[Rfam]
RNA sequence: UUAAUAAUUAUAGCGCCCGGACUUACAUUGUAAGUUGACGAGGUAAGGGGAGAAUCGAUCCUUCGGCGGAUGCCCCUUAGGCUGUGGCUAUCAGCCUUAAACUAAGUUCUUAAAACUCUCAGGAAACUGGGGGGACAAUAGAAUUUAGGAUAGUUAGU
Numbered sequence: 001u002u003a004a005u006a007a008u009u010a011u012a013g014c015g016c017c018c019g020g021a022c023u024u025a026c027a028u029u030g031u032a033a034g035u036u037g038a039c040g041a042g043g044u045a046a047g048g049g050g051a052g053a054a055u056c057g058a059u060c061c062u063u064c065g066g067c068g069g070a071u072g073c074c075c076c077u078u079a080g081g082c083u084g085u086g087g088c089u090a091u092c093a094g095c096c097u098u099a100a101a102c103u104a105a106g107u108u109c110u111u112a113a114a115a116c117u118c119u120c121a122g123g124a125a126a127c128u129g130g131g132g133g134g135a136c137a138a139u140a141g142a143a144u145u146u147a148g149g150a151u152a153g154u155u156a157g158u
Stems, first nucleotide, its partner, number of pairs: 020036007046078005055066004079097006102148007116133007
A member of the RNA family "glmS glucosamine-6-phosphate activated ribozyme aptamer" from Halanaerobacter jeridensis, 158 nucleotides long.
Rfam classes the family as a riboswitch.